[Rfam]
RNA: tRNA
RNA sequence: UCCCCCGUGGCGCAAUUGGCUAGCGCGUUCGACUGUUAAGAUCUGCAAAUCGAGAGGUUGGUGGUUCAAGCCCACCCGGGGGAG
Numbered sequence: 001u002c003c004c005c006c007g008u009g010g011c012g013c014a015a016u017u018g019g020c021u022a023g024c025g026c027g028u029u030c031g032a033c034u035g036u037u038a039a040g041a042u043c044u045g046c047a048a049a050u051c052g053a054g055a056g057g058u059u060g061g062u063g064g065u066u067c068a069a070g071c072c073c074a075c076c077c078g079g080g081g082g083a084g
Base pairs, nucleotide, nucleotide: 001083002082003081004080005079006078007077010026011025012024013023028054029053030052031051032050060076061075062074063073064072
Dot-bracket structure: (((((((..((((.........)))).(((((.................))))).....(((((.......)))))))))))).